[Rfam]
Source information
MIR2617 microRNA precursor family: a 93-nucleotide RNA sequence from Medicago truncatula. The source organism's lineage runs through Eukaryota, Viridiplantae, Tracheophyta, Fabales and Medicago. The base pairs follow the family's consensus structure, which was predicted with RNAalifold. It scores 55 bits against the family's covariance model.
RNA sequence: AUGUAGUGUGACAUGCCCAUUUGGAUUUAUUACUCUGACGUGUGUUUAUUUUAUUUAAAUAAAUUAUAUUUGGGAAUGGGGUGUUACACUAUC
Dot-bracket structure: ..((((((((((((.((((((.....................................................)))))))))))))))))).